[Rfam]
RNA sequence: CCAACGUGGAUAUUCCGAGAGGUCAUUCUCCCCUGGCUCUGUCCAGCUAGCCUAGGGGAGCAUAGGGCUCUGCCCCAUGAUGUACAGUCCCUUUCCACAAUGUUAGAGAAGAAGCUGGGCCUUGUGUCUGUGCCUGCAUACUCCUACAACUUCUCAGAGUCCUUUGGGCAGUGACUGAGGAGAUAAACCAUGCAGGAAACCACU
Numbered sequence: 001c002c003a004a005c006g007u008g009g010a011u012a013u014u015c016c017g018a019g020a021g022g023u024c025a026u027u028c029u030c031c032c033c034u035g036g037c038u039c040u041g042u043c044c045a046g047c048u049a050g051c052c053u054a055g056g057g058g059a060g061c062a063u064a065g066g067g068c069u070c071u072g073c074c075c076c077a078u079g080a081u082g083u084a085c086a087g088u089c090c091c092u093u094u095c096c097a098c099a100a101u102g103u104u105a106g107a108g109a110a111g112a113a114g115c116u117g118g119g120c121c122u123u124g125u126g127u128c129u130g131u132g133c134c135u136g137c138a139u140a141c142u143c144c145u146a147c148a149a150c151u152u153c154u155c156a157g158a159g160u161c162c163u164u165u166g167g168g169c170a171g172u173g174a175c176u177g178a179g180g181a182g183a184u185a186a187a188c189c190a191u192g193c194a195g196g197a198a199a200c201c202a203c204u
Base pairs, nucleotide, nucleotide: 001106003104004103005102006101007100008044009043010042011041012040014036015035018029019028020027021026048097050095056091057090058089059088060085062083063082064081065078133196134195135194136193137192138191139190150182151181152180153179154178155177159169160168161167162166
Source information:
A member of the RNA family "Small nucleolar RNA SNORA73 family" from Fukomys damarensis, 204 nucleotides long. It is annotated as an H/ACA-box small nucleolar RNA. The organism belongs to Fukomys, within Eukaryota. Rfam describes the family as follows. U17 (SNORA73A and SNORA73B) also known as E1 belongs to the H/ACA class of small nucleolar RNAs (snoRNAs). Clan: snR30-U17 clan. Pairs were carried over by alignment from the consensus structure, which is taken from published work. The match comes from Rfam's covariance-model search (169 bits).